[Rfam]
RNA sequence: CACGCGCCGGGCCCAAUCCACACACGCACCGGCACAUGUGUCGGGGUGCCCGCCGCGGCGGGUCGGCCCAUGGGGUGCGUGGAGGCUCAAC
Numbered sequence: 001c002a003c004g005c006g007c008c009g010g011g012c013c014c015a016a017u018c019c020a021c022a023c024a025c026g027c028a029c030c031g032g033c034a035c036a037u038g039u040g041u042c043g044g045g046g047u048g049c050c051c052g053c054c055g056c057g058g059c060g061g062g063u064c065g066g067c068c069c070a071u072g073g074g075g076u077g078c079g080u081g082g083a084g085g086c087u088c089a090a091c
Stems, first nucleotide, its partner, number of pairs: 023081008035072004040067004048063005

t44 RNA: a 91-nucleotide RNA from Thioalbus denitrificans. The source organism's lineage runs through Bacteria, Pseudomonadati, Pseudomonadota, Gammaproteobacteria and Thioalbus. By type it is a small RNA. A search with the family's covariance model found it, with a score of 72 bits. On this family, see Tjaden et al., Nucleic Acids Res 2002: "Transcriptome analysis of Escherichia coli using high-density oligonucleotide probe arrays".